This 107-nucleotide RNA sequence from Carnegiea gigantea belongs to the Rfam family "Small nucleolar RNA snoR97". Its family is annotated with RNA processing and nucleolus in the Gene Ontology. Rfam 15.1 lists 862 matches to the family in 223 species. The base pairs follow the family's consensus structure, which was predicted with WAR. A search with the family's covariance model found it, with a score of 75 bits. For this family Rfam cites "Experimental RNomics: identification of 140 candidates for small non-messenger RNAs in the plant Arabidopsis thaliana" (Marker et al., Curr Biol, 2002). The organism belongs to Carnegiea, within Eukaryota.
RNA sequence: CAAUAAUGGUGGGUAGAGAGUCUGAAAGACUCACAAAGUGGGUGUUGUCUAUCAGCUUCAUGCCUUGUAUUGUAACGCGCUUGGAGUUAAAUAACAGCACUAGAUGU
Numbered sequence: 001c002a003a004u005a006a007u008g009g010u011g012g013g014u015a016g017a018g019a020g021u022c023u024g025a026a027a028g029a030c031u032c033a034c035a036a037a038g039u040g041g042g043u044g045u046u047g048u049c050u051a052u053c054a055g056c057u058u059c060a061u062g063c064c065u066u067g068u069a070u071u072g073u074a075a076c077g078c079g080c081u082u083g084g085a086g087u088u089a090a091a092u093a094a095c096a097g098c099a100c101u102a103g104a105u106g107u
Base pairs, nucleotide, nucleotide: 041101042100043099044098045097046096047095054088055087056086057085058084059083062080063079065077